[Rfam]
Rfam assigns this 109-nucleotide RNA from Staphylococcus sp. HGB0015 to the family "SAM riboswitch aptamer (S box leader)". The match comes from Rfam's covariance-model search (85 bits). The source organism's lineage runs through Bacteria, Bacilli, Caryophanales, Staphylococcaceae and Staphylococcus.
Nucleotides: 109
Base pairs, nucleotide, nucleotide: 001109003107004106005105006104007103008102013042015041016040017039021032022031023030026081027080028079029078044072045071046070048069049068052064053063054062077101082098083097084096085095086094087093
Number, partner (000 for none) and nucleotide at each position: 001109u002000a003107u004106u005105u006104a007103u008102c009000a010000a011000g012000a013042g014000u015041g016040g017039u018000g019000g020000a021032g022031g023030g024000a025000a026081u027080u028079g029078g030023c031022c032021c033000u034000a035000c036000g037000a038000a039017g040016c041015c042013c043000u044072g045071c046070a047000a048069c049068c050000u051000c052064a053063u054062c055000g056000u057000a058000a059000a060000g061000c062054g063053a064052u065000a066000a067000a068049g069048g070046u071045g072044c073000u074000a075000a076000a077101u078029c079028c080027a081026a082098c083097a084096g085095u086094c087093u088000a089000u090000a091000a092000u093087g094086g095085g096084c097083u098082g099000a100000a101077a102008g103007a104006u105005a106004a107003a108000a109001a